[Rfam]
Nucleotides: 093
Base pairs, nucleotide, nucleotide: 001088002087003086004085
Number, partner (000 for none) and nucleotide at each position: 001088g002087g003086c004085a005000g006000g007000g008000g009000a010000u011000g012000u013000c014000c015000u016000u017000u018000c019000u020000c021000a022000c023000g024000a025000u026000g027000g028000u029000c030000u031000u032000c033000a034000g035000a036000g037000g038000c039000c040000c041000u042000g043000a044000g045000c046000g047000a048000u049000g050000g051000g052000g053000u054000u055000a056000c057000u058000g059000u060000u061000g062000a063000u064000u065000c066000u067000g068000c069000c070000u071000u072000a073000a074000g075000g076000c077000u078000c079000a080000g081000c082000u083000g084000a085004u086003g087002c088001c089000g090000g091000c092000u093000u
The family of this 93-nucleotide sequence from Vombatus ursinus is "Small nucleolar RNA SNORD35". The literature on the family includes a 1996 paper in J Mol Biol by Nicoloso et al., "Intron-encoded, antisense small nucleolar RNAs: the characterization of nine novel species points to their direct role as guides for the 2'-O-ribose methylation of rRNAs". The family has 8 seed sequences and 1,842 matches in Rfam 15.1. Its Rfam clan is "SNORD35 clan". U35 is a C/D box snoRNA located in intron 6 of ribosomal protein L13A and intron 3 of ribosomal protein S11 in humans and at homologous positions in mouse and chicken ribosomal protein genes. U35 guides the methylation of 2'-O-ribose sites in 28S rRNA. The source organism's lineage runs through Eukaryota, Vertebrata, Tetrapoda, Metatheria and Vombatus.